Record summary
Rfam assigns this 35-nucleotide RNA sequence to the family "S16-Flavobacteria ribosomal protein leader". It is annotated as a cis-regulatory leader. The family's consensus secondary structure is taken from published work. It is one of the family's seed sequences.
[Rfam]
RNA sequence: AUUAAUAACAGAGGUAGAGAACCUCACAAAUUAAU
Numbered sequence: 001a002u003u004a005a006u007a008a009c010a011g012a013g014g015u016a017g018a019g020a021a022c023c024u025c026a027c028a029a030a031u032u033a034a035u
Stems, first nucleotide, its partner, number of pairs: 001035006011025005